The record is an 88-nucleotide sequence from Opisthocomus hoazin, which matches "let-7 microRNA precursor family" in Rfam. Lineage of the source: Eukaryota > Vertebrata > Teleostomi > Tetrapoda > Opisthocomus. The family has 64 seed sequences and 8,694 matches in Rfam 15.1. About the family: This family represents the microRNAs (miRNA) let-7 and mir-98. let-7 was identified from a study of developmental timing in C. elegans, and was later shown to be part of a much larger class of non-coding RNAs termed miRNAs. Rfam links the family to the GO terms miRNA-mediated post-transcriptional gene silencing and RISC complex. A reference for the family is Rougvie (2001), "Control of developmental timing in animals", Nat Rev Genet.

RNA sequence: UGGAGGUGAGGUAGUAGGUUGUAUAGUUUGGUGGGAGGGAUUUUAUCCCAUUUCAGGUGAAAACUAUACAGUCUAUUGCCUUCCUUAA
Numbered sequence: 001u002g003g004a005g006g007u008g009a010g011g012u013a014g015u016a017g018g019u020u021g022u023a024u025a026g027u028u029u030g031g032u033g034g035g036a037g038g039g040a041u042u043u044u045a046u047c048c049c050a051u052u053u054c055a056g057g058u059g060a061a062a063a064c065u066a067u068a069c070a071g072u073c074u075a076u077u078g079c080c081u082u083c084c085u086u087a088a
Stems, first nucleotide, its partner, number of pairs: 001088001003086004008082020032050004052059001